[Rfam]
A member of the RNA family "c-di-AMP riboswitch aptamer (ydaO/yuaA leader)" from Oscillatoriaceae cyanobacterium M33_DOE_052, 146 nucleotides long. Lineage of the source: Bacteria > Bacillati > Cyanobacteriota > Oscillatoriales > Oscillatoriaceae. Rfam describes the family as follows. This family represents a conserved RNA structure found upstream of the ydaO and yuaA genes in Bacillus subtilis and related genes in other bacteria.

RNA sequence: GAGUUUUAGAGGCUAGAUAAAGCCAGAGGCGGGGGAACCAGGCUAUUUGAGAGCAUAAGGGGCAUAUCCUCAUUGUUAAUUUAUGAGGAAGGGCAUCUCUCAGCCCUAGCCCGUCAGCUAACCUCGUCGGCAUUGAGAGAAGACUG
Numbered sequence: 001g002a003g004u005u006u007u008a009g010a011g012g013c014u015a016g017a018u019a020a021a022g023c024c025a026g027a028g029g030c031g032g033g034g035g036a037a038c039c040a041g042g043c044u045a046u047u048u049g050a051g052a053g054c055a056u057a058a059g060g061g062g063c064a065u066a067u068c069c070u071c072a073u074u075g076u077u078a079a080u081u082u083a084u085g086a087g088g089a090a091g092g093g094c095a096u097c098u099c100u101c102a103g104c105c106c107u108a109g110c111c112c113g114u115c116a117g118c119u120a121a122c123c124u125c126g127u128c129g130g131c132a133u134u135g136a137g138a139g140a141a142g143a144c145u146g
Stems, first nucleotide, its partner, number of pairs: 004028003029127006039059001060112003068088006091106004